RNA sequence: CUGUAUUCAUGGGUUUAGAGUCUGAAAAAACUCAGACAAUCGGUGUUGUCAUCAGCUUCAUCUCCAGAAAACCUACGAGAUAGGAGUUAAAUAACAGCACUACAUCC
Dot-bracket structure: .........................................(((((((.....((((((.((((............))))..))))))......)))))))......
Small nucleolar RNA snoR97: a 107-nucleotide sequence from Salix viminalis. It scores 106 bits against the family's covariance model. Lineage of the source: Eukaryota > Streptophytina > Mesangiospermae > rosids > Salix. The family's consensus secondary structure was predicted with WAR.